[Rfam]
Source information
Rfam assigns this 72-nucleotide RNA from Parvularcula mediterranea to the family "Makes More Granules Regulator RNA (mmgR)". Rfam classes the family as a small RNA. Its Rfam clan is "suhB sRNA clan". Pairs were carried over by alignment from the consensus structure. The match comes from Rfam's covariance-model search (60 bits).
RNA sequence: CCAACAUGCCCUUCCGGGCGUUUCCUCCCUAGACUGGUCGCGACUUCGGUCGCGGCCUUUUUUUUUAUGGGU
Number, nucleotide and partner (000 for none) at each position: 001c000002c000003a000004a000005c000006a000007u000008g019009c018010c017011c016012u000013u000014c000015c000016g011017g010018g009019c008020g000021u000022u000023u000024c000025c000026u000027c000028c000029c000030u000031a000032g000033a000034c000035u000036g057037g056038u055039c054040g053041c052042g051043a050044c049045u000046u000047c000048g000049g044050u043051c042052g041053c040054g039055g038056c037057c036058u000059u000060u000061u000062u000063u000064u000065u000066u000067a000068u000069g000070g000071g000072u000